[Rfam]
RNA sequence: GGCUCACCUCCACUACGGAUCGUCGGGCACGUACCUGCCCGUGGAAAGGAAAU
Number, nucleotide and partner (000 for none) at each position: 001g000002g000003c000004u000005c000006a000007c048008c000009u045010c044011c043012a042013c000014u000015a000016c000017g000018g000019a000020u000021c000022g000023u000024c041025g040026g039027g038028c037029a036030c000031g000032u000033a000034c000035c000036u029037g028038c027039c026040c025041g024042u012043g011044g010045a009046a000047a000048g007049g000050a000051a000052a000053u000
This 53-nucleotide RNA sequence from Tessaracoccus sp. OH4464_COT-324 belongs to the Rfam family "msiK RNA". The organism belongs to Tessaracoccus, within Bacteria. The family has 120 seed sequences and 1,374 matches in Rfam 15.1. It scores 56 bits against the family's covariance model.